RNA sequence: UUUUGAAAUCCUGCUAACGCAGGGUGAAAUUGCGCUUACGCGCAGUGAAAUAUUGCUUCGCAAUGUGAAAUACGCC
Numbered sequence: 001u002u003u004u005g006a007a008a009u010c011c012u013g014c015u016a017a018c019g020c021a022g023g024g025u026g027a028a029a030u031u032g033c034g035c036u037u038a039c040g041c042g043c044a045g046u047g048a049a050a051u052a053u054u055g056c057u058u059c060g061c062a063a064u065g066u067g068a069a070a071u072a073c074g075c076c
Base pairs, nucleotide, nucleotide: 008025009024010023011022012021013020014019029046030045031044032043033042034041050066051065052064053063054062055061056060
Notes
Rfam assigns this 76-nucleotide RNA from Clostridium sp. CAG:226 to the family "Gut-1 RNA". A search with the family's covariance model found it, with a score of 63 bits. It is annotated as a small RNA. Pairs were carried over by alignment from the consensus structure, which is taken from published work.